L31-Actinobacteria ribosomal protein leader: a 66-nucleotide RNA sequence from Nakamurella flava.
[Rfam]
Nucleotides: 066
Base pairs, nucleotide, nucleotide: 003066004065005064007062008061009060010059015056016055017054018053019052021050022049
Number, partner (000 for none) and nucleotide at each position: 001000c002000c003066g004065g005064u006000a007062c008061c009060g010059g011000u012000u013000c014000a015056c016055g017054u018053c019052c020000c021050u022049c023000u024000c025000c026000c027000g028000c029000g030000u031000c032000c033000a034000u035000c036000u037000c038000g039000g040000a041000a042000c043000g044000g045000c046000c047000g048000u049022g050021a051000c052019g053018g054017g055016c056015g057000a058000c059010c060009c061008g062007g063000c064005g065004c066003c
Lineage of the source: Bacteria > Bacillati > Actinomycetota > Nakamurellales > Nakamurella.
The match comes from Rfam's covariance-model search (44 bits).
Rfam classes the family as a cis-regulatory leader.